[Rfam]
RNA sequence: GGAACCGUGAGGGACCGUCCGGAGGAAGCCGGAGCGCAAAGCGGUGAGCCGACGAACAGAAACAGCAUACAAGGCCGAGUCCCUGGGCAAGUCGGCACGACAUGACGGAACCCCGGAUUCAGGGGAUACGGUAAAUGCCGCGGUUGUGUCGUCACAGUUCACGUC
Numbered sequence: 001g002g003a004a005c006c007g008u009g010a011g012g013g014a015c016c017g018u019c020c021g022g023a024g025g026a027a028g029c030c031g032g033a034g035c036g037c038a039a040a041g042c043g044g045u046g047a048g049c050c051g052a053c054g055a056a057c058a059g060a061a062a063c064a065g066c067a068u069a070c071a072a073g074g075c076c077g078a079g080u081c082c083c084u085g086g087g088c089a090a091g092u093c094g095g096c097a098c099g100a101c102a103u104g105a106c107g108g109a110a111c112c113c114c115g116g117a118u119u120c121a122g123g124g125g126a127u128a129c130g131g132u133a134a135a136u137g138c139c140g141c142g143g144u145u146g147u148g149u150c151g152u153c154a155c156a157g158u159u160c161a162c163g164u165c
Base pairs, nucleotide, nucleotide: 001016002015005012006011028165030163031162036158037157041152042151043150044149045148046147047145048144049143050142051141063140065138066137067136068135074132075131076130079127080126081125082124083123084122085113086112087111091106092105093104094103
RNA: Group II catalytic intron D1-D4-3